[Rfam]
RNA sequence: CCCGUCCGCCCCGUGGACGCCCCUGACCGUCCGCGCGUGCGCCGGGCUAGGCUGACGGCGUGCGCCUUCCAUCGACUUCCAUGGGAAGACGCAAAGCCGACAGCCGUCGCACUCCAGGGAGCACCUUCAUG
Numbered sequence: 001c002c003c004g005u006c007c008g009c010c011c012c013g014u015g016g017a018c019g020c021c022c023c024u025g026a027c028c029g030u031c032c033g034c035g036c037g038u039g040c041g042c043c044g045g046g047c048u049a050g051g052c053u054g055a056c057g058g059c060g061u062g063c064g065c066c067u068u069c070c071a072u073c074g075a076c077u078u079c080c081a082u083g084g085g086a087a088g089a090c091g092c093a094a095a096g097c098c099g100a101c102a103g104c105c106g107u108c109g110c111a112c113u114c115c116a117g118g119g120a121g122c123a124c125c126u127u128c129a130u131g
Base pairs, nucleotide, nucleotide: 061093062092063091064090066088067087068086069085096110097109099108100107101106

A member of the RNA family "Streptomyces-metH RNA" from Streptomyces capitiformicae, 131 nucleotides long. The family's consensus secondary structure is taken from published work. The family's RNA type in Rfam is small RNA.